[Rfam]
RNA sequence: CCGCAGGCUCCAGCAUGGCGGGGCCUGCCGUGACCCCUGCCAUUCCUGCAGCUCUGCCAGAGCAUCCCGGGGCCGUUUGAGGCCGCUCCCGGCGCUUCCCGGGGGCGGUCAUAGACCCCCCGGACAUCC
Numbered sequence: 001c002c003g004c005a006g007g008c009u010c011c012a013g014c015a016u017g018g019c020g021g022g023g024c025c026u027g028c029c030g031u032g033a034c035c036c037c038u039g040c041c042a043u044u045c046c047u048g049c050a051g052c053u054c055u056g057c058c059a060g061a062g063c064a065u066c067c068c069g070g071g072g073c074c075g076u077u078u079g080a081g082g083c084c085g086c087u088c089c090c091g092g093c094g095c096u097u098c099c100c101g102g103g104g105g106c107g108g109u110c111a112u113a114g115a116c117c118c119c120c121c122g123g124a125c126a127u128c129c
Stems, first nucleotide, its partner, number of pairs: 003057005016042003021036003025032001068122005083108006090101003
The family of this 129-nucleotide sequence from Poecile atricapillus is "Small nucleolar RNA SNORA9". ACA9 is a member of the H/ACA class of snoRNA that guide the sites of modification of uridines to pseudouridines. The source organism's lineage runs through Eukaryota, Bilateria, Sauropsida, Saurischia and Poecile.